[Rfam]
RNA: Purine riboswitch aptamer
Organism: Niallia nealsonii
RNA sequence: CAGCGUAAAAAAUAAUUUUUUCGUAUAUCCUUAAUAAUUGGUUUAAGGGUCUCUACAAAGAAACCGUAAAUUUCUUGCUACGAAAAAAGUAUGCCUUUUU
Numbered sequence: 001c002a003g004c005g006u007a008a009a010a011a012a013u014a015a016u017u018u019u020u021u022c023g024u025a026u027a028u029c030c031u032u033a034a035u036a037a038u039u040g041g042u043u044u045a046a047g048g049g050u051c052u053c054u055a056c057a058a059a060g061a062a063a064c065c066g067u068a069a070a071u072u073u074c075u076u077g078c079u080a081c082g083a084a085a086a087a088a089g090u091a092u093g094c095c096u097u098u099u100u
Base pairs, nucleotide, nucleotide: 018086019085020084021083022082023081024080025079029048030047031046032045033044034043058076059075060074061073062072063071